[Rfam]
RNA sequence: AUUCUGCUGUGAUGAAUUAUGAAAAUUGUUAACGCAUGUCAGACUUCAGAGACUCUUUAAGUAGUCGAUGAGAAGACAUUUUCAUUCUCUCUGAGCUCGAA
Numbered sequence: 001a002u003u004c005u006g007c008u009g010u011g012a013u014g015a016a017u018u019a020u021g022a023a024a025a026u027u028g029u030u031a032a033c034g035c036a037u038g039u040c041a042g043a044c045u046u047c048a049g050a051g052a053c054u055c056u057u058u059a060a061g062u063a064g065u066c067g068a069u070g071a072g073a074a075g076a077c078a079u080u081u082u083c084a085u086u087c088u089c090u091c092u093g094a095g096c097u098c099g100a101a
Base pairs, nucleotide, nucleotide: 002100003099006096007095051066052065053064054063
This 101-nucleotide sequence from Cuscuta australis belongs to the Rfam family "Small nucleolar RNA R64/Z200 family". Lineage of the source: Eukaryota > Tracheophyta > Spermatophyta > asterids > Cuscuta sect. Cleistogrammica. It scores 67 bits against the family's covariance model.